[Rfam]
Nucleotides: 126
Base pairs, nucleotide, nucleotide: 004118005117006116007115008114009113010112011111022041023040024039026037027036042080043079044078045077046076047075091102092101093100
Number, partner (000 for none) and nucleotide at each position: 001000a002000g003000a004118u005117g006116c007115g008114g009113a010112g011111a012000u013000a014000a015000a016000a017000a018000c019000a020000c021000a022041g023040g024039c025000a026037g027036g028000u029000u030000g031000g032000u033000a034000g035000u036027c037026c038000g039024g040023c041022c042080a043079c044078g045077g046076c047075c048000c049000g050000c051000c052000g053000g054000g055000g056000a057000c058000c059000g060000g061000u062000c063000c064000c065000g066000u067000c068000c069000c070000c071000c072000g073000g074000c075047g076046g077045c078044u079043g080042u081000c082000a083000g084000u085000a086000g087000c088000c089000c090000u091102c092101c093100c094000u095000c096000c097000c098000a099000u100093g101092g102091g103000u104000c105000g106000u107000c108000c109000a110000u111011u112010u113009u114008c115007c116006g117005c118004a119000g120000a121000u122000a123000u124000a125000c126000u

The record is a 126-nucleotide RNA from Intestinimonas butyriciproducens, which matches "azaaromatic riboswitch aptamer (yjdF RNA)" in Rfam. The family's consensus secondary structure is taken from published work.